[Rfam]
RNA sequence: CUAAGAGGAACAUCUGCCAAGAACGCCACGUCGUGUGGCAGGGCAGAUGUGACAAACAUCGUGUUUG
Numbered sequence: 001c002u003a004a005g006a007g008g009a010a011c012a013u014c015u016g017c018c019a020a021g022a023a024c025g026c027c028a029c030g031u032c033g034u035g036u037g038g039c040a041g042g043g044c045a046g047a048u049g050u051g052a053c054a055a056a057c058a059u060c061g062u063g064u065u066u067g
Stems, first nucleotide, its partner, number of pairs: 011049007025039005053067005